[Rfam]
RNA sequence: GUUGCUUCUUACUUACUGGUGAACUCUUUCUACUUCAGAAAUGGGGAUGUUCAUGUUUUAGAAGCAUAGAUUAAUUGAAGAAGAUAUCUUGCCAGUAUUAAACAGCAUGGUGUGGUCUUUAAUGAUGCACCAUGUUACCUGUUUACUGGUAUACUC
Number, nucleotide and partner (000 for none) at each position: 001g000002u000003u066004g065005c064006u063007u062008c061009u000010u000011a000012c000013u000014u000015a000016c000017u000018g000019g000020u053021g052022a051023a050024c049025u047026c046027u045028u044029u043030c000031u000032a000033c000034u000035u000036c000037a000038g000039a000040a000041a000042u000043g029044g028045g027046g026047a025048u000049g024050u023051u022052c021053a020054u000055g000056u000057u000058u000059u000060a000061g008062a007063a006064g005065c004066a003067u000068a000069g000070a000071u000072u000073a000074a000075u000076u000077g000078a000079a000080g000081a000082a000083g000084a000085u000086a000087u000088c000089u000090u000091g150092c149093c148094a147095g146096u145097a144098u000099u000100a000101a000102a000103c000104a136105g135106c134107a000108u132109g131110g130111u129112g128113u000114g000115g000116u000117c000118u000119u000120u000121a000122a000123u000124g000125a000126u000127g000128c112129a111130c110131c109132a108133u000134g106135u105136u104137a000138c000139c000140u000141g000142u000143u000144u097145a096146c095147u094148g093149g092150u091151a000152u000153a000154c000155u000156c000

This 156-nucleotide RNA from Protea cynaroides belongs to the Rfam family "small nucleolar RNA snoR137".